The record is a 32-nucleotide sequence from Tursiops truncatus, which matches "Iron response element II" in Rfam. Taxonomically the source falls in Tursiops (Eukaryota, Mammalia, Eutheria, Whippomorpha). The match comes from Rfam's covariance-model search (33 bits). Rfam describes the family as follows. IRE, TFRC, SLC40A1, SDHB, SLC11A2, CDC42BPA, ACO2, ALAS2_H.SAPIENS, CDC14A, EPAS1, ALAS2, qoxD, Hao1, NDUFS1, transferrin, Aconitate. Rfam 15.1 lists 5,197 matches to the family in 722 species. The family's RNA type in Rfam is cis-regulatory element. The base pairs follow the family's consensus structure, which is taken from published work.
RNA sequence: CUGACAUCAGUCACAGUGCUGUACUAUGUCAG
Numbered sequence: 001c002u003g004a005c006a007u008c009a010g011u012c013a014c015a016g017u018g019c020u021g022u023a024c025u026a027u028g029u030c031a032g
Stems, first nucleotide, its partner, number of pairs: 001032007009025003012021002014018001